[Rfam]
RNA sequence: UUUAAUUCUCAGGGCGGGGUGAAAUUCCCCACCGGCGGUAGUUUCUGAACUUUUAUCACAGAAAAAGCCCGCGAGCGCUUAUCAACAACCAUUAAAUUUGCGUUAUGUUUGAUAAGGUCAGCAGAUCUGGUCAAAAUCCAGAGCCGACGGUGAUAGUCCGGAUGGGAGAGAAUGAAC
Dot-bracket structure: ..(.((((((......(((.......))).[[((((((............................[[))))..((............................................))...(((((.......)))))]])).(((.....]]))).......)))))).)..
This 177-nucleotide RNA sequence from Aliikangiella coralliicola belongs to the Rfam family "FMN riboswitch aptamer (RFN element)". The base pairs follow the family's consensus structure, which is taken from published work. A search with the family's covariance model found it, with a score of 112 bits.